[Rfam]
Shown here is a 167-nucleotide sequence from endosymbiont 'TC1' of Trimyema compressum, a member of the family "Lysine riboswitch aptamer". The base pairs follow the family's consensus structure, which is taken from published work. Its family is annotated with lysine biosynthetic process in the Gene Ontology.

Nucleotides: 167
Stems, first nucleotide, its partner, number of pairs: 006162001009159003017079005024072002033064007083110004088105007111137011139152005
Number, partner (000 for none) and nucleotide at each position: 001000c002000a003000u004000c005000g006162a007000a008000g009159u010158a011157g012000a013000g014000g015000u016000c017079g018078c019077a020076a021075g022000g023000a024072c025071c026000a027000u028000u029000a030000g031000u032000a033064c034063u035062a036061u037060u038059c039058c040000a041000g042000a043000g044000a045000u046000g047000g048000a049000a050000g051000c052000a053000a054000a055000g056000a057000a058039g059038g060037a061036a062035u063034a064033g065000a066000a067000a068000a069000g070000g071025g072024g073000a074000a075021c076020u077019u078018g079017c080000c081000g082000a083110a084109g085108u086107c087000a088105a089104a090103u091102a092101a093100g094099c095000c096000c097000g098000a099094g100093c101092u102091u103090a104089u105088u106000a107086g108085g109084c110083u111137g112136g113135u114134u115133a116132u117131g118130a119129g120128u121127u122000u123000a124000a125000u126000a127121g128120a129119u130118u131117u132116a133115u134114a135113a136112c137111u138000g139152u140151c141150a142149c143148a144000g145000g146000a147000a148143u149142g150141u151140g152139g153000a154000g155000u156000g157011c158010u159009a160000a161000c162006u163000c164000a165000g166000a167000u